[Rfam]
RNA sequence: UUGAAUAUUGGGAAUGAUGUUCUCCCACGGACGGUUCAGACUGAGCCUACGAAACCGCUUAUUCAAGCUGAUGACUUCUGCGUUCUU
Numbered sequence: 001u002u003g004a005a006u007a008u009u010g011g012g013a014a015u016g017a018u019g020u021u022c023u024c025c026c027a028c029g030g031a032c033g034g035u036u037c038a039g040a041c042u043g044a045g046c047c048u049a050c051g052a053a054a055c056c057g058c059u060u061a062u063u064c065a066a067g068c069u070g071a072u073g074a075c076u077u078c079u080g081c082g083u084u085c086u087u
Stems, first nucleotide, its partner, number of pairs: 010026004016078002019075003057068004
RNA: Fluoride riboswitch aptamer (crcB RNA motif)
Organism: Ruminococcus difficilis